[Rfam]
Nucleotides: 165
Stems, first nucleotide, its partner, number of pairs: 002065004009057003013053002016050003020046003026042004102159008120142002123139003
Number, partner (000 for none) and nucleotide at each position: 001000c002065u003064g004063c005062a006000u007000g008000u009057u010056u011055c012000u013053g014052a015000c016050g017049a018048a019000c020046a021045u022044g023000u024000u025000u026042u027041c028040c029039u030000u031000a032000a033000c034000c035000a036000a037000a038000a039029a040028g041027g042026a043000u044022c045021a046020u047000u048018u049017u050016u051000u052014u053013c054000a055011g056010a057009a058000a059000c060000a061000u062005u063004g064003u065002g066000g067000a068000u069000c070000u071000g072000u073000u074000g075000a076000a077000a078000u079000u080000g081000a082000g083000c084000a085000g086000c087000g088000g089000c090000c091000a092000g093000a094000c095000a096000a097000c098000c099000g100000u101000a102159g103158a104157g105156a106155u107154g108153g109152a110000a111000u112000c113000c114000a115000c116000a117000g118000a119000u120142g121141u122000u123139g124138a125137g126000u127000u128000u129000u130000a131000u132000u133000a134000u135000c136000u137125c138124u139123c140000c141121a142120u143000u144000c145000u146000a147000c148000u149000a150000a151000u152109u153108c154107c155106a156105u157104c158103u159102c160000a161000u162000a163000u164000u165000u